Source information:
Shown here is a 188-nucleotide sequence from Halalkalibacter okhensis, a member of the family "Lysine riboswitch aptamer". Lineage of the source: Bacteria > Bacillota > Caryophanales > Bacillaceae > Halalkalibacter. Its family is annotated with lysine biosynthetic process in the Gene Ontology. A search with the family's covariance model found it, with a score of 110 bits.
[Rfam]
RNA sequence: GUGAUUGGUAGAGGAGCGAAAACCAAUAGUAAGCUUUCUGAGAGGAAUGAGCCUCGGUGAUGAAAGAAGAAAGGGGAAUUCGCCGAAGUGCAAGGAAGACUCAUCUGACUUGUGCUGGACCUAUGUUGAAGAAGCAUAGGGCUGUCACAUACCUACACCCAAGAGGUAUGUGGAGAACUAUCUCACGA
Numbered sequence: 001g002u003g004a005u006u007g008g009u010a011g012a013g014g015a016g017c018g019a020a021a022a023c024c025a026a027u028a029g030u031a032a033g034c035u036u037u038c039u040g041a042g043a044g045g046a047a048u049g050a051g052c053c054u055c056g057g058u059g060a061u062g063a064a065a066g067a068a069g070a071a072a073g074g075g076g077a078a079u080u081c082g083c084c085g086a087a088g089u090g091c092a093a094g095g096a097a098g099a100c101u102c103a104u105c106u107g108a109c110u111u112g113u114g115c116u117g118g119a120c121c122u123a124u125g126u127u128g129a130a131g132a133a134g135c136a137u138a139g140g141g142c143u144g145u146c147a148c149a150u151a152c153c154u155a156c157a158c159c160c161a162a163g164a165g166g167u168a169u170g171u172g173g174a175g176a177a178c179u180a181u182c183u184c185a186c187g188a
Base pairs, nucleotide, nucleotide: 007182008181009180010179011178016083017082018081019080020079023076024075034066035065036064037063038062087116088115089114090113091112092111093110094109097106098105117143118142120140121139122138123137124136125135126134127133145173146172147171148170149169150168151167152166153165154164